[Rfam]
Rfam assigns this 69-nucleotide RNA sequence from Dreissena polymorpha to the family "mir-71 microRNA precursor family". Taxonomically the source falls in Dreissena (Eukaryota, Opisthokonta, Heteroconchia, Dreissenidae). The base pairs follow the family's consensus structure, which was predicted with RNAalifold. The family has 36 seed sequences and 372 matches in Rfam 15.1.

Nucleotides: 069
Stems, first nucleotide, its partner, number of pairs: 008061008017053003021049006028042002
Number, partner (000 for none) and nucleotide at each position: 001000c002000u003000g004000u005000u006000g007000u008061g009060a010059a011058a012057g013056a014055c015054a016000u017053g018052g019051g020000u021049a022048g023047u024046g025045a026044g027000a028042u029041g030000u031000u032000a033000g034000c035000a036000u037000g038000u039000g040000u041029c042028a043000c044026c045025u046024u047023g048022c049021u050000a051019c052018u053017c054015u055014g056013u057012c058011u059010u060009u061008u062000g063000c064000a065000c066000c067000a068000u069000a